[Rfam]
RNA sequence: CGUCACCGAUCCAACUGCUUGCCCGUUACCGGGUCACGGCACCAACCCAAUCGUGGCUGGCUCUCCCGAUGU
Numbered sequence: 001c002g003u004c005a006c007c008g009a010u011c012c013a014a015c016u017g018c019u020u021g022c023c024c025g026u027u028a029c030c031g032g033g034u035c036a037c038g039g040c041a042c043c044a045a046c047c048c049a050a051u052c053g054u055g056g057c058u059g060g061c062u063c064u065c066c067c068g069a070u071g072u
Stems, first nucleotide, its partner, number of pairs: 007071002017040003020036002023033002051069003055065002

Pseudomonas sRNA P10: a 72-nucleotide RNA from Pseudomonas sp. TTU2014-080ASC. The match comes from Rfam's covariance-model search (77 bits). The base pairs follow the family's consensus structure, which was predicted with WAR. The family's RNA type in Rfam is small RNA. The organism belongs to Pseudomonas, within Bacteria.